[Rfam]
The family of this 107-nucleotide RNA from Gracilibacillus ureilyticus is "SAM riboswitch aptamer (S box leader)".

RNA sequence: CUCUUAUCAAGAGAGGUGGAGGGACUGGCCCUAUGAAACCCGGCAACCGUCAGAUUAUAUCUGAAAGGUGCUAAUUCCAACAAAGCAGAUGCUUUGAGAGAUAAGAG
Dot-bracket structure: ((((((((....(.(((...(((..[[[)))......))))((((.((.((((.......))))..))))))...(]]].((((((....))))))..)))))))))
A search with the family's covariance model found it, with a score of 100 bits.